[Rfam]
RNA sequence: AUGCAUCCAAUAGGAAUUAAACCUAUGAAUUCGCCAAUUAUGAAUUGGGCGCUUUAACUGUUCAGCCAUGAAUGC
Numbered sequence: 001a002u003g004c005a006u007c008c009a010a011u012a013g014g015a016a017u018u019a020a021a022c023c024u025a026u027g028a029a030u031u032c033g034c035c036a037a038u039u040a041u042g043a044a045u046u047g048g049g050c051g052c053u054u055u056a057a058c059u060g061u062u063c064a065g066c067c068a069u070g071a072a073u074g075c
Stems, first nucleotide, its partner, number of pairs: 003075004008070001010026005040069003045065007
Dot-bracket structure: ..((((.(.(((((.......))))).............(((..(((((((.......))))))).)))).))))